[Rfam]
Nucleotides: 069
Base pairs, nucleotide, nucleotide: 003022006019007018008017009016010015043068044067045066051060052059053058
Number, partner (000 for none) and nucleotide at each position: 001000a002000a003022u004000a005000u006019u007018g008017u009016u010015u011000g012000u013000a014000g015010g016009a017008a018007c019006a020000a021000a022003a023000a024000g025000a026000a027000a028000c029000a030000g031000a032000u033000u034000u035000a036000u037000u038000c039000u040000a041000u042000a043068c044067u045066c046000g047000a048000u049000a050000a051060g052059u053058a054000c055000c056000a057000a058053u059052a060051c061000g062000c063000a064000a065000c066045g067044g068043g069000g
Shown here is a 69-nucleotide sequence from Cynara cardunculus, a member of the family "Plastid-clpP 5UTR RNA". Rfam classes the family as a cis-regulatory element. Plastid clpP is a non-coding RNA (ncRNA) recognised in plastids. Pairs were carried over by alignment from the consensus structure, which was predicted with LocARNA.